[Rfam]
Overview:
The record is a 205-nucleotide sequence from Saccharomonospora piscinae, which matches "Actinobacteria sRNA Ms_IGR-5" in Rfam. Lineage of the source: Bacteria > Bacillati > Pseudonocardiales > Pseudonocardiaceae > Saccharomonospora. A search with the family's covariance model found it, with a score of 94 bits. By type it is a small RNA.
RNA sequence: ACACGAGAAAGGAGGUGGUCCGACGGUGAAUAUCCACAGGACUCGUGAGGUGGCUGUCCACUGACAGCGCACACGGGCCGACCAGAAGCCUUGUGUGCCUGCCGGUGAAUACCAGGCAGUCACCGGCCUCCAGUGCUCCCGGGACCCGGUCCGACCCGGGCCCGAACGGCUGACGACGUUCGGGAGCCGCACUGGGGGCUUCCCU
Numbered sequence: 001a002c003a004c005g006a007g008a009a010a011g012g013a014g015g016u017g018g019u020c021c022g023a024c025g026g027u028g029a030a031u032a033u034c035c036a037c038a039g040g041a042c043u044c045g046u047g048a049g050g051u052g053g054c055u056g057u058c059c060a061c062u063g064a065c066a067g068c069g070c071a072c073a074c075g076g077g078c079c080g081a082c083c084a085g086a087a088g089c090c091u092u093g094u095g096u097g098c099c100u101g102c103c104g105g106u107g108a109a110u111a112c113c114a115g116g117c118a119g120u121c122a123c124c125g126g127c128c129u130c131c132a133g134u135g136c137u138c139c140c141g142g143g144a145c146c147c148g149g150u151c152c153g154a155c156c157c158g159g160g161c162c163c164g165a166a167c168g169g170c171u172g173a174c175g176a177c178g179u180u181c182g183g184g185a186g187c188c189g190c191a192c193u194g195g196g197g198g199c200u201u202c203c204c205u
Base pairs, nucleotide, nucleotide: 014058015057016056017055018054019053059107060106061105062104063103065101067098068097069096070095071094072093073092125200126199127198128197129196130195131194132193133192134191135190136189139159140158141157142156143155